About this RNA: Rfam assigns this 128-nucleotide RNA from Neogale vison to the family "Small nucleolar RNA SNORA11". The literature on the family includes a 2005 paper in Nucleic Acids Res by Gu et al., "A novel experimental approach for systematic identification of box H/ACA snoRNAs from eukaryotes". The source organism's lineage runs through Eukaryota, Euteleostomi, Boreoeutheria, Carnivora and Neogale. The base pairs follow the family's consensus structure, which was predicted with RNAalifold. About the family: U107 (SNORA11) is a member of the H/ACA class of snoRNAs that guide the sites of modification of uridines to pseudouridines. This snoRNA was identified by RT-PCR from blood cells and its expression confirmed by Northern blot analysis. There is no predicted target for this guide snRNA. Its family is annotated with RNA processing and nucleolus in the Gene Ontology.
RNA sequence: GGAGUGUGCUCAUGGCAGGGGGCCUGAAGAAGUGGCUCCUGUGCAUACAACACACCCGACGGGAAUCUGGGUUCAUUGUGACAAGGGGCAUGAAACUUGGCCUUCCUACAAACAGAUACCCAACACCU
Numbered sequence: 001g002g003a004g005u006g007u008g009c010u011c012a013u014g015g016c017a018g019g020g021g022g023c024c025u026g027a028a029g030a031a032g033u034g035g036c037u038c039c040u041g042u043g044c045a046u047a048c049a050a051c052a053c054a055c056c057c058g059a060c061g062g063g064a065a066u067c068u069g070g071g072u073u074c075a076u077u078g079u080g081a082c083a084a085g086g087g088g089c090a091u092g093a094a095a096c097u098u099g100g101c102c103u104u105c106c107u108a109c110a111a112a113c114a115g116a117u118a119c120c121c122a123a124c125a126c127c128u
Stems, first nucleotide, its partner, number of pairs: 002057001004055005015044003019040003022036003070121002073118001077114003085103003089099002093097001